[Rfam]
RNA sequence: AGCCAAAUGAUGAGUUAAUACUUCUGAAUUCUAAUGUUGAAAAACAUAGCAUAAUAGCCUUCAAAGUUCUCUGAUUGCU
Numbered sequence: 001a002g003c004c005a006a007a008u009g010a011u012g013a014g015u016u017a018a019u020a021c022u023u024c025u026g027a028a029u030u031c032u033a034a035u036g037u038u039g040a041a042a043a044a045c046a047u048a049g050c051a052u053a054a055u056a057g058c059c060u061u062c063a064a065a066g067u068u069c070u071c072u073g074a075u076u077g078c079u
Base pairs, nucleotide, nucleotide: 001079002078003077005075

Shown here is a 79-nucleotide RNA sequence from Coptis chinensis, a member of the family "Small nucleolar RNA R160". Rfam 15.1 lists 799 matches to the family in 221 species. About the family: snoR160 is a C/D box small nucleolar RNA, which acts as a methylation guide for 25S ribosomal RNA in plants. snoR160 has been alternatively named snoZ270 in rice. The base pairs follow the family's consensus structure. Its family is annotated with nucleolus and RNA processing in the Gene Ontology. Lineage of the source: Eukaryota > Viridiplantae > Embryophyta > Tracheophyta > Coptis. On this family, see Chen et al., Nucleic Acids Res 2003: "The high diversity of snoRNAs in plants: identification and comparative study of 120 snoRNA genes from Oryza sativa".